[Rfam]
Notes: Rfam assigns this 158-nucleotide sequence to the family "DUF2800 RNA".
RNA sequence: CCGCCGUUAACUGCACGGAAUGAUCACCCGUGGCUCAACGGUGACCGGCGGACAAGUUAAUAAGAACGGCUGCCUAUUGAGCGGGUUGCCGCAGACCGAGACGGAGAAUUUCUCCGCCGGACUGUGGUUUAGUUUCUGCAUGCUUUUACAGCCGUACC
Numbered sequence: 001c002c003g004c005c006g007u008u009a010a011c012u013g014c015a016c017g018g019a020a021u022g023a024u025c026a027c028c029c030g031u032g033g034c035u036c037a038a039c040g041g042u043g044a045c046c047g048g049c050g051g052a053c054a055a056g057u058u059a060a061u062a063a064g065a066a067c068g069g070c071u072g073c074c075u076a077u078u079g080a081g082c083g084g085g086u087u088g089c090c091g092c093a094g095a096c097c098g099a100g101a102c103g104g105a106g107a108a109u110u111u112c113u114c115c116g117c118c119g120g121a122c123u124g125u126g127g128u129u130u131a132g133u134u135u136c137u138g139c140a141u142g143c144u145u146u147u148a149c150a151g152c153c154g155u156a157c158c
Base pairs, nucleotide, nucleotide: 001051002050003049004048005047008044010042011041012040013039014032015031016030017029018028033082034081035080036079037078038077067154068153069152070151071150072149088128089127090126091125092124102116103115104114105113